TPP riboswitch aptamer (THI element): a 103-nucleotide RNA sequence from Neisseria animalis.
[Rfam]
RNA sequence: CUGCAGAAACAGGGGUGCUGCCCGCAGAUGAGUGGGCGGCUGAGAAUCACCCUUUGCACCCGAUACGGAUAAUACCGGCGUGGGGAGUUUCGAGGCGGAAGUU
Numbered sequence: 001c002u003g004c005a006g007a008a009a010c011a012g013g014g015g016u017g018c019u020g021c022c023c024g025c026a027g028a029u030g031a032g033u034g035g036g037c038g039g040c041u042g043a044g045a046a047u048c049a050c051c052c053u054u055u056g057c058a059c060c061c062g063a064u065a066c067g068g069a070u071a072a073u074a075c076c077g078g079c080g081u082g083g084g085g086a087g088u089u090u091c092g093a094g095g096c097g098g099a100a101g102u103u
Stems, first nucleotide, its partner, number of pairs: 006091005011053004017040009059084004066077003
Rfam links the family to the GO term thiamine pyrophosphate binding.